[Rfam]
RNA: pan motif
Organism: Clostridioides difficile
RNA sequence: UGGAUGGUAUCUUGUUAUAAGAACUAUACUUUAAAUGUUUUUAAUUAUUUUGUCUUAUGUAACUCAUAUCCUCAGGAAUGAGAUUAGAAA
Numbered sequence: 001u002g003g004a005u006g007g008u009a010u011c012u013u014g015u016u017a018u019a020a021g022a023a024c025u026a027u028a029c030u031u032u033a034a035a036u037g038u039u040u041u042u043a044a045u046u047a048u049u050u051u052g053u054c055u056u057a058u059g060u061a062a063c064u065c066a067u068a069u070c071c072u073c074a075g076g077a078a079u080g081a082g083a084u085u086a087g088a089a090a
Stems, first nucleotide, its partner, number of pairs: 002030002004027005010022002060086003063082005069077003